[Rfam]
RNA sequence: AAGAAAUAGGAGCUCCCUUCAGUCCAAAACAAUGAGCAAGUUUUUUUAUUCUCAUAGGCCCUGUUUUGGGCUGCAAGGAACCCCCAUUUCUG
Numbered sequence: 001a002a003g004a005a006a007u008a009g010g011a012g013c014u015c016c017c018u019u020c021a022g023u024c025c026a027a028a029a030c031a032a033u034g035a036g037c038a039a040g041u042u043u044u045u046u047u048a049u050u051c052u053c054a055u056a057g058g059c060c061c062u063g064u065u066u067u068g069g070g071c072u073g074c075a076a077g078g079a080a081c082c083c084c085c086a087u088u089u090c091u092g
Stems, first nucleotide, its partner, number of pairs: 007086001009084002012081001014079003018075001021072002024069005

A member of the RNA family "MIR319 microRNA precursor family" from Ziziphus jujuba, 92 nucleotides long. Gene Ontology terms of the family: miRNA-mediated post-transcriptional gene silencing and RISC complex. The family's consensus secondary structure was predicted with RNAalifold.